RNA sequence: AGCACAAAUGAUGAGUGAUAAAGGGACUUAAUACUGAAACCGGAUGUUACAUUGUGAUACGCUGAUGGUGC
Numbered sequence: 001a002g003c004a005c006a007a008a009u010g011a012u013g014a015g016u017g018a019u020a021a022a023g024g025g026a027c028u029u030a031a032u033a034c035u036g037a038a039a040c041c042g043g044a045u046g047u048u049a050c051a052u053u054g055u056g057a058u059a060c061g062c063u064g065a066u067g068g069u070g071c
Base pairs, nucleotide, nucleotide: 002071003070004069005068006066
A member of the RNA family "Small nucleolar RNA SNORD82" from Orycteropus afer, 71 nucleotides long. The base pairs follow the family's consensus structure, which was predicted with PFOLD. From the family's description: snoRNA U82 or Z25 is found in both humans and mice. Taxonomically the source falls in Orycteropus afer (Eukaryota, Chordata, Teleostomi, Theria). It is annotated as a C/D-box small nucleolar RNA. It scores 82 bits against the family's covariance model.